[Rfam]
RNA sequence: GAAAGGGCGGAGUAUCUACUGCCUGGAUGUAUUGAGAAAUGAAACACCACUACUCAAUACUCCCAAUUAAA
Numbered sequence: 001g002a003a004a005g006g007g008c009g010g011a012g013u014a015u016c017u018a019c020u021g022c023c024u025g026g027a028u029g030u031a032u033u034g035a036g037a038a039a040u041g042a043a044a045c046a047c048c049a050c051u052a053c054u055c056a057a058u059a060c061u062c063c064c065a066a067u068u069a070a071a
Stems, first nucleotide, its partner, number of pairs: 005024006025063003029060008
RNA: S4-Clostridia ribosomal protein leader